[Rfam]
RNA: SAM (S-adenosyl methionine) riboswitch aptamer
RNA sequence: UGUCACGAGAUCCGAUUUCAAGCCCUGGCUGAUCGGACAGCAACCCUCUCUCUGGAGAUCGACCACAAUCUCUUACACAGUGGGGUGCUCCAGGUGAAGACAAGGCCCAUUCGGCAAGUGUGUUUA
Number, nucleotide and partner (000 for none) at each position: 001u102002g101003u100004c099005a000006c000007g000008a000009g038010a000011u037012c036013c035014g034015a033016u032017u000018u000019c000020a000021a030022g029023c000024c000025c000026u000027g000028g000029c022030u021031g000032a016033u015034c014035g013036g012037a011038c009039a089040g088041c087042a000043a000044c085045c084046c083047u000048c080049u079050c000051u000052c000053u000054g000055g000056a000057g000058a000059u000060c000061g000062a000063c000064c000065a000066c000067a000068a000069u000070c000071u000072c000073u000074u000075a000076c000077a000078c000079a049080g048081u000082g000083g046084g045085g044086u000087g041088c040089u039090c000091c000092a000093g000094g000095u000096g000097a000098a000099g004100a003101c002102a001103a000104g000105g115106c114107c113108c000109a000110u000111u000112c000113g107114g106115c105116a000117a000118g000119u000120g000121u000122g000123u000124u000125u000126a000